[Rfam]
RNA: chrB-b RNA
RNA sequence: CGGGGACAAAGCAGGCUCCCCGCCAGACGGCCUCCGUCCAAGCUCUGC
Numbered sequence: 001c002g003g004g005g006a007c008a009a010a011g012c013a014g015g016c017u018c019c020c021c022g023c024c025a026g027a028c029g030g031c032c033u034c035c036g037u038c039c040a041a042g043c044u045c046u047g048c
Stems, first nucleotide, its partner, number of pairs: 001022006011048005026038005